[Rfam]
RNA sequence: GAUGGGAGAAUGACAAAUCAGAUUUUUUUUCUGGUUUUCAGCUCUUUCUUCUUGAAAAAAAUUGAAAUUCAAUUAUAAAUACUAAAAAUAAGGAGGAAAAAUCUUAUUUAUCAUUUUCUCAUU
Dot-bracket structure: (((((((((((((.((((.(((((((((((((.(((((.((...((..............................))...)).))))).))))).)))))))).)))).)))))))))))))
A member of the RNA family "MIR7504 microRNA precursor family" from Gossypium stocksii, 123 nucleotides long.
The family's consensus secondary structure was predicted with RNAalifold.
Rfam links the family to the GO terms miRNA-mediated post-transcriptional gene silencing and RISC complex.